Rfam assigns this 100-nucleotide RNA from Paenibacillus albicereus to the family "Purine riboswitch aptamer".
Rfam 15.1 lists 4,097 matches to the family in 1,411 species.
NCBI's taxonomy places the organism under Bacteria, Bacillati, Bacilli, Caryophanales, Paenibacillus.
RNA sequence: GUCCGAUAAUCGCAUACUCCUCGUAUAUCUUCGGGAAUCGGCCCGAACGUUUCUACCCGGCGACCGGAAUCGCCGGACUACGGGAAGAACCGGAGCCCCG
Dot-bracket structure: .................(.((((((....((((((......)))))).........(((((((......)))))))..)))))).)..............